[Rfam]
RNA: Small nucleolar RNA R160
Organism: Arachis hypogaea
RNA sequence: GGCAAAAUGAUGAGGUUUUAAUAUCUGAAUAUUAUGUGGAUUACCAAUUCCCAAUGGUCUUCAAAGUUCUCUGAUUGCU
Numbered sequence: 001g002g003c004a005a006a007a008u009g010a011u012g013a014g015g016u017u018u019u020a021a022u023a024u025c026u027g028a029a030u031a032u033u034a035u036g037u038g039g040a041u042u043a044c045c046a047a048u049u050c051c052c053a054a055u056g057g058u059c060u061u062c063a064a065a066g067u068u069c070u071c072u073g074a075u076u077g078c079u
Stems, first nucleotide, its partner, number of pairs: 001079005